Shown here is an 87-nucleotide RNA sequence from Acipenser ruthenus, a member of the family "mir-204 microRNA precursor family".
The family has 60 seed sequences and 1,730 matches in Rfam 15.1.
The match comes from Rfam's covariance-model search (55 bits).
Rfam links the family to the GO terms RISC complex and miRNA-mediated post-transcriptional gene silencing.
The base pairs follow the family's consensus structure, which was predicted with RNAalifold.
RNA sequence: CAGUGGGCUGUGGGCUUCCCUUUGUCAUCCUAUGCCUGUGACUGGAAUGGAGGCUGGGGUGUUAAGGGGAGGCUGGCAGUUUAACCA
Numbered sequence: 001c002a003g004u005g006g007g008c009u010g011u012g013g014g015c016u017u018c019c020c021u022u023u024g025u026c027a028u029c030c031u032a033u034g035c036c037u038g039u040g041a042c043u044g045g046a047a048u049g050g051a052g053g054c055u056g057g058g059g060u061g062u063u064a065a066g067g068g069g070a071g072g073c074u075g076g077c078a079g080u081u082u083a084a085c086c087a
Stems, first nucleotide, its partner, number of pairs: 017070006024063001028059005034054004